RNA: MIR8024 microRNA precursor family
Organism: Capsicum baccatum
RNA sequence: UUAGAGGUUGUGACAACUUCAACUUGCAAACUUGAUGAAUUUGGAGACUUCAACUUGCAAACUUGGUGGAUUUGUAGACUUCAACU
Numbered sequence: 001u002u003a004g005a006g007g008u009u010g011u012g013a014c015a016a017c018u019u020c021a022a023c024u025u026g027c028a029a030a031c032u033u034g035a036u037g038a039a040u041u042u043g044g045a046g047a048c049u050u051c052a053a054c055u056u057g058c059a060a061a062c063u064u065g066g067u068g069g070a071u072u073u074g075u076a077g078a079c080u081u082c083a084a085c086u
Base pairs, nucleotide, nucleotide: 001084002083004081005080006079009076010075011074012073013072017068019066020065021064025059026058027057028056032053033052034051035050037048